[Rfam]
RNA sequence: GACGACCGGCCGGACACGCCCAGCAACACGCGAGCCCGGCCAACAAGUGGAGGCUCCGAUCUCCCACCUGACCGUCCCCAGGGACAGCAGGUCACCCGGUCAGGCGGCAGCCAUCGUUCCGUACGGACGAUGGAGUCGCCCGAAAGCGCGCCCCGCGGCAUCGCGGCGGUGCUCCGGUUGUUUUGGAGCCCCGCAGGUGACCGUCCGGGGCAUUUUUC
Numbered sequence: 001g002a003c004g005a006c007c008g009g010c011c012g013g014a015c016a017c018g019c020c021c022a023g024c025a026a027c028a029c030g031c032g033a034g035c036c037c038g039g040c041c042a043a044c045a046a047g048u049g050g051a052g053g054c055u056c057c058g059a060u061c062u063c064c065c066a067c068c069u070g071a072c073c074g075u076c077c078c079c080a081g082g083g084a085c086a087g088c089a090g091g092u093c094a095c096c097c098g099g100u101c102a103g104g105c106g107g108c109a110g111c112c113a114u115c116g117u118u119c120c121g122u123a124c125g126g127a128c129g130a131u132g133g134a135g136u137c138g139c140c141c142g143a144a145a146g147c148g149c150g151c152c153c154c155g156c157g158g159c160a161u162c163g164c165g166g167c168g169g170u171g172c173u174c175c176g177g178u179u180g181u182u183u184u185g186g187a188g189c190c191c192c193g194c195a196g197g198u199g200a201c202c203g204u205c206c207g208g209g210g211c212a213u214u215u216u217u218c
Stems, first nucleotide, its partner, number of pairs: 004101006012037002038093004044070002047067004051062002072087001074085004103140003107137001111133008150211006156203003162199003166194004171189005